[Rfam]
The record is a 59-nucleotide RNA sequence from Actinomyces polynesiensis, which matches "L31-Actinobacteria ribosomal protein leader" in Rfam. Clan: Ribosomal Protein L31 Leader clan. The family's consensus secondary structure is taken from published work. The literature on the family includes a 2020 paper in BMC Microbiol by Eckert and Weinberg, "Discovery of 20 novel ribosomal leader candidates in bacteria and archaea".
RNA sequence: UCGGUCCCGGUUCACCCCCGAGCUCCGGCGUGGGCACCUGCCCCGGGGGACCCGGCAUC
Number, nucleotide and partner (000 for none) at each position: 001u000002c000003g059004g058005u057006c000007c055008c054009g053010g052011u000012u000013c000014a000015c049016c048017c047018c046019c045020g044021a000022g042023c000024u000025c000026c000027g000028g000029c000030g000031u000032g000033g000034g000035c000036a000037c000038c000039u000040g000041c000042c022043c000044c020045g019046g018047g017048g016049g015050a000051c000052c010053c009054g008055g007056c000057a005058u004059c003